[Rfam]
RNA sequence: CCUGCCUACCAUUGUAAGUUGCUUUGGAUAAAAGCGUCUGCUAAAUGACUAAAU
Numbered sequence: 001c002c003u004g005c006c007u008a009c010c011a012u013u014g015u016a017a018g019u020u021g022c023u024u025u026g027g028a029u030a031a032a033a034g035c036g037u038c039u040g041c042u043a044a045a046u047g048a049c050u051a052a053a054u
Stems, first nucleotide, its partner, number of pairs: 013043001014041003020036006
Shown here is a 54-nucleotide RNA sequence from Anabas testudineus, a member of the family "UnaL2 LINE 3' element". By type it is a cis-regulatory element. Taxonomically the source falls in Anabas (Eukaryota, Actinopterygii, Clupeocephala, Euteleosteomorpha). Rfam links the family to the GO term transposition, RNA-mediated. The match comes from Rfam's covariance-model search (58 bits).